[Rfam]
RNA sequence: AAGGGUUUUUGCGACUGACGGAGUGUUCGUGCAAACGCGGACGGUGGAAUACCACAAUGGAGCAGAAACUUAUAAUGCCGACCGUCUGGGCAGUCCUA
Numbered sequence: 001a002a003g004g005g006u007u008u009u010u011g012c013g014a015c016u017g018a019c020g021g022a023g024u025g026u027u028c029g030u031g032c033a034a035a036c037g038c039g040g041a042c043g044g045u046g047g048a049a050u051a052c053c054a055c056a057a058u059g060g061a062g063c064a065g066a067a068a069c070u071u072a073u074a075a076u077g078c079c080g081a082c083c084g085u086c087u088g089g090g091c092a093g094u095c096c097u098a
Stems, first nucleotide, its partner, number of pairs: 003071010015059001017086005044055004076092004